Background: Rfam assigns this 131-nucleotide sequence from Phyllostomus discolor to the family "Small nucleolar RNA SNORA38". Rfam's curators write: ACA38 is a member of the H/ACA class of snoRNA that guide the sites of modification of uridines to pseudouridines. The match comes from Rfam's covariance-model search (103 bits). Rfam 15.1 lists 628 matches to the family in 149 species. By type it is an H/ACA-box small nucleolar RNA.
[Rfam]
RNA sequence: CCCUUCUACAAAGACAUGAUGGUGGUUCCCUGUCUUUGGACACCUAAGAACUGGAGGCCAAGAAACAUGGACUUUGACAAAUCUACGGACAGUUUGCUCCCUGUAGGCUCAAGAGCAACCAUCCCACAUAG
Numbered sequence: 001c002c003c004u005u006c007u008a009c010a011a012a013g014a015c016a017u018g019a020u021g022g023u024g025g026u027u028c029c030c031u032g033u034c035u036u037u038g039g040a041c042a043c044c045u046a047a048g049a050a051c052u053g054g055a056g057g058c059c060a061a062g063a064a065a066c067a068u069g070g071a072c073u074u075u076g077a078c079a080a081a082u083c084u085a086c087g088g089a090c091a092g093u094u095u096g097c098u099c100c101c102u103g104u105a106g107g108c109u110c111a112a113g114a115g116c117a118a119c120c121a122u123c124c125c126a127c128a129u130a131g
Stems, first nucleotide, its partner, number of pairs: 002057005017042002020039001024030002069124003073121001091109007
Dot-bracket structure: .(((((..........((.(...((...))........).))..........)))))...........(((.(.................(((((((.....)))))))...........)))).......